This 129-nucleotide sequence from Denticeps clupeoides belongs to the Rfam family "Small nucleolar RNA SNORA13". The base pairs follow the family's consensus structure, which was predicted with CMfinder. Its family is annotated with RNA processing and nucleolus in the Gene Ontology. Rfam's curators write: ACA13 is a member of the H/ACA class of snoRNA that guide the sites of modification of uridines to pseudouridines.
RNA sequence: UGCCUUUAUGUGUUGCUCGUUCAUUGUUUGGUUGAUGAAUGUAGUGUCAGAAAAGGCAGACAUGAAAUCUGCAGGUGGUUUAUUAUGGGAAGCAUCUUUAUGCUUUUCCCUUCUGCCUUCAGGACAUUC
Numbered sequence: 001u002g003c004c005u006u007u008a009u010g011u012g013u014u015g016c017u018c019g020u021u022c023a024u025u026g027u028u029u030g031g032u033u034g035a036u037g038a039a040u041g042u043a044g045u046g047u048c049a050g051a052a053a054a055g056g057c058a059g060a061c062a063u064g065a066a067a068u069c070u071g072c073a074g075g076u077g078g079u080u081u082a083u084u085a086u087g088g089g090a091a092g093c094a095u096c097u098u099u100a101u102g103c104u105u106u107u108c109c110c111u112u113c114u115g116c117c118u119u120c121a122g123g124a125c126a127u128u129c
Stems, first nucleotide, its partner, number of pairs: 002057006011049002014046004018041008069122003073118006088108002092103002